Rfam assigns this 71-nucleotide sequence from Albula goreensis to the family "Small nucleolar RNA SNORD2". It is annotated as a C/D-box small nucleolar RNA. NCBI's taxonomy places the organism under Eukaryota, Chordata, Actinopterygii, Elopocephala, Albula. For this family Rfam cites "Identification of a novel box C/D snoRNA from mouse nucleolar cDNA library" (Zhou et al., Gene, 2004).
RNA sequence: GAGUGAUGUGAUGUUCUACCAUCUUUCGGGACUGACCCUGAACUGGAGACAAUUUUUCUUACUGAUCACUC
Numbered sequence: 001g002a003g004u005g006a007u008g009u010g011a012u013g014u015u016c017u018a019c020c021a022u023c024u025u026u027c028g029g030g031a032c033u034g035a036c037c038c039u040g041a042a043c044u045g046g047a048g049a050c051a052a053u054u055u056u057u058c059u060u061a062c063u064g065a066u067c068a069c070u071c
Stems, first nucleotide, its partner, number of pairs: 001071006